[Rfam]
RNA sequence: UUUACUUAGGUCUGUGGUUGAAAGUCGAUGCUAGUCGCAGGCGAAACGAUCCACAUAAGAUAGUCAAAAUGACUGUUGAGCAUGGUGCGGUUUAGAGAUAAGUCCUGCCUGAUUAGAUUUAAGAGUUUAUAGUGUUAUAAGAGUCUGGUACAUAGAAAAUACCGUGACUUGAUUAGCUGUUAUCUUAAAAUUAAUCAGAGAGAAGUAGUAGUAGGAAGGAAACCCCUUGAGCGAACCUUCCCGCAGGCGGGUGUGGGGUCAAAAACCAGGUCAGCUAGGUGAG
Dot-bracket structure: (((((((((..((((((((........((([.(((((((.]........((......((....(......)....)).....[)))))))))...........(((((((((((((..........................................................................))))))))...((((.....((.....((...))......))....))))..)))))....)))......]..)))))...))))))))))))
Numbered sequence: 001u002u003u004a005c006u007u008a009g010g011u012c013u014g015u016g017g018u019u020g021a022a023a024g025u026c027g028a029u030g031c032u033a034g035u036c037g038c039a040g041g042c043g044a045a046a047c048g049a050u051c052c053a054c055a056u057a058a059g060a061u062a063g064u065c066a067a068a069a070u071g072a073c074u075g076u077u078g079a080g081c082a083u084g085g086u087g088c089g090g091u092u093u094a095g096a097g098a099u100a101a102g103u104c105c106u107g108c109c110u111g112a113u114u115a116g117a118u119u120u121a122a123g124a125g126u127u128u129a130u131a132g133u134g135u136u137a138u139a140a141g142a143g144u145c146u147g148g149u150a151c152a153u154a155g156a157a158a159a160u161a162c163c164g165u166g167a168c169u170u171g172a173u174u175a176g177c178u179g180u181u182a183u184c185u186u187a188a189a190a191u192u193a194a195u196c197a198g199a200g201a202g203a204a205g206u207a208g209u210a211g212u213a214g215g216a217a218g219g220a221a222a223c224c225c226c227u228u229g230a231g232c233g234a235a236c237c238u239u240c241c242c243g244c245a246g247g248c249g250g251g252u253g254u255g256g257g258g259u260c261a262a263a264a265a266c267c268a269g270g271u272c273a274g275c276u277a278g279g280u281g282a283g
Stems, first nucleotide, its partner, number of pairs: 001283009012274003015268005028254003031041001033092007050085002058077002064071001083261001104247005109198008202240004211232002218224002